Notes:
The record is a 125-nucleotide RNA sequence from Dromaius novaehollandiae, which matches "Small nucleolar RNA SNORD22" in Rfam. NCBI's taxonomy places the organism under Eukaryota, Teleostomi, Casuariiformes, Dromaiidae, Dromaius. It is annotated as a C/D-box small nucleolar RNA. The family's consensus secondary structure was predicted with PFOLD.

RNA sequence: UCCUGAUGAGGAAAACCUCACGCGUCUUACUGCCUGUUUGGCGCCAGAACCUGCAAAGGUUGAACCCACUGGUGCCGGCAGCCGGAGAGGAGGACGGCUGGUUCUGCGGGAACCGUCUGAGGGGA
Numbered sequence: 001u002c003c004u005g006a007u008g009a010g011g012a013a014a015a016c017c018u019c020a021c022g023c024g025u026c027u028u029a030c031u032g033c034c035u036g037u038u039u040g041g042c043g044c045c046a047g048a049a050c051c052u053g054c055a056a057a058g059g060u061u062g063a064a065c066c067c068a069c070u071g072g073u074g075c076c077g078g079c080a081g082c083c084g085g086a087g088a089g090g091a092g093g094a095c096g097g098c099u100g101g102u103u104c105u106g107c108g109g110g111a112a113c114c115g116u117c118u119g120a121g122g123g124g125a
Stems, first nucleotide, its partner, number of pairs: 001124004